Annotation:
Rfam assigns this 358-nucleotide RNA from Novosphingobium sp. MD-1 to the family "Alphaproteobacteria transfer-messenger RNA". The family's RNA type in Rfam is non-coding RNA gene. A reference for the family is Williams and Bartel (1996), "Phylogenetic analysis of tmRNA secondary structure", RNA. Rfam describes the family as follows. Bacterial tmRNA, also known as 10Sa RNA or SsrA, is named for its dual tRNA and mRNA-like properties. A search with the family's covariance model found it, with a score of 221 bits. Its Rfam clan is "tRNA clan".
RNA sequence: CCCCUUUUCAUUUGGCGGGCGAUCCCUAUAUGGGGAAGUGCCGGCUUGCCGGCUAUGGUGAUAAACUGCGGCGUGCAAUAGGCGCAGCGGACCCGGGGGCGGUACCCGGCGGCUCCACCACCUUUCCCGUACUGCCUCCUUUGGCGGCAGGCGGGGCAGAUGACGGGGCCGAACUAGGAUCGACGUGUGUUGAAAAGCGCUGUUUUCGCCCGGGCUGAGUAACCCGUUCAAGGCUCAAAACCAACAAGUGCCAACGACAACGAAGCACUUGCUCUCGCGGCGUAAUUCUAGGGGCUAACGCCCUGAAGUUACAAAGCCAGAACGCGGUUGGACCCACCGGUCAACAGAAGCGGAUUCC
Numbered sequence: 001c002c003c004c005u006u007u008u009c010a011u012u013u014g015g016c017g018g019g020c021g022a023u024c025c026c027u028a029u030a031u032g033g034g035g036a037a038g039u040g041c042c043g044g045c046u047u048g049c050c051g052g053c054u055a056u057g058g059u060g061a062u063a064a065a066c067u068g069c070g071g072c073g074u075g076c077a078a079u080a081g082g083c084g085c086a087g088c089g090g091a092c093c094c095g096g097g098g099g100c101g102g103u104a105c106c107c108g109g110c111g112g113c114u115c116c117a118c119c120a121c122c123u124u125u126c127c128c129g130u131a132c133u134g135c136c137u138c139c140u141u142u143g144g145c146g147g148c149a150g151g152c153g154g155g156g157c158a159g160a161u162g163a164c165g166g167g168g169c170c171g172a173a174c175u176a177g178g179a180u181c182g183a184c185g186u187g188u189g190u191u192g193a194a195a196a197g198c199g200c201u202g203u204u205u206u207c208g209c210c211c212g213g214g215c216u217g218a219g220u221a222a223c224c225c226g227u228u229c230a231a232g233g234c235u236c237a238a239a240a241c242c243a244a245c246a247a248g249u250g251c252c253a254a255c256g257a258c259a260a261c262g263a264a265g266c267a268c269u270u271g272c273u274c275u276c277g278c279g280g281c282g283u284a285a286u287u288c289u290a291g292g293g294g295c296u297a298a299c300g301c302c303c304u305g306a307a308g309u310u311a312c313a314a315a316g317c318c319a320g321a322a323c324g325c326g327g328u329u330g331g332a333c334c335c336a337c338c339g340g341u342c343a344a345c346a347g348a349a350g351c352g353g354a355u356u357c358c
Base pairs, nucleotide, nucleotide: 040053041052042051043050044049057210058209059208060207061206068203069202070201071200072199073198074197083189084188085187087186088185089184093109094108095107096106097105110171111170112169113168114167115166116165211226212225213224214223216237217236218235325339326338327337328336330356331355333353334352